RNA sequence: CGGCUUAUGAGUAAGGCCUUUCCGGUUCUUGCAGCGUUUCCUUCCGUAUGGUUGGUAAAGCUGCGAGGGUUCGCCGGAAAGGGUUCAUAAGCCU
Numbered sequence: 001c002g003g004c005u006u007a008u009g010a011g012u013a014a015g016g017c018c019u020u021u022c023c024g025g026u027u028c029u030u031g032c033a034g035c036g037u038u039u040c041c042u043u044c045c046g047u048a049u050g051g052u053u054g055g056u057a058a059a060g061c062u063g064c065g066a067g068g069g070u071u072c073g074c075c076g077g078a079a080a081g082g083g084u085u086c087a088u089a090a091g092c093c094u
Stems, first nucleotide, its partner, number of pairs: 002093005008087002021078005028073001029066007040055002044051002
This 94-nucleotide sequence belongs to the Rfam family "DUF3800-V RNA". By type it is a small RNA.